[Rfam]
RNA sequence: UUGGAAGACUUGAAGACUUCAACCUGUAUACUUGGAAGAUUAGAAGACUUCAACUUGUAUACUUGGAAGAUUUGAAGAUUUCAACU
Numbered sequence: 001u002u003g004g005a006a007g008a009c010u011u012g013a014a015g016a017c018u019u020c021a022a023c024c025u026g027u028a029u030a031c032u033u034g035g036a037a038g039a040u041u042a043g044a045a046g047a048c049u050u051c052a053a054c055u056u057g058u059a060u061a062c063u064u065g066g067a068a069g070a071u072u073u074g075a076a077g078a079u080u081u082c083a084a085c086u
Stems, first nucleotide, its partner, number of pairs: 001084006010075005018067004025059004032053005
MIR8024 microRNA precursor family: an 86-nucleotide RNA from Solanum commersonii. Pairs were carried over by alignment from the consensus structure, which was predicted with RNAalifold.